Background: The family of this 58-nucleotide sequence from Orthopestivirus brazilense is "Pestivirus 3' UTR SLI". It is annotated as a cis-regulatory element. Taxonomically the source falls in Orthopestivirus brazilense (Viruses, Orthornavirae, Kitrinoviricota, Amarillovirales). The literature on the family includes a 2005 paper in J Virol by Pankraz et al., "Essential and nonessential elements in the 3' nontranslated region of Bovine viral diarrhea virus".

RNA sequence: AGCUGUUUGGGAAAGACCCGACGUCCACAGUUGGACUAGGGAAAAUCCCUAACGGCCC
Number, nucleotide and partner (000 for none) at each position: 001a000002g056003c055004u054005g053006u052007u051008u000009g049010g048011g047012a046013a000014a000015g000016a000017c041018c040019c039020g000021a000022c000023g036024u035025c034026c033027a032028c000029a000030g000031u000032u027033g026034g025035a024036c023037u000038a000039g019040g018041g017042a000043a000044a000045a000046u012047c011048c010049c009050u000051a007052a006053c005054g004055g003056c002057c000058c000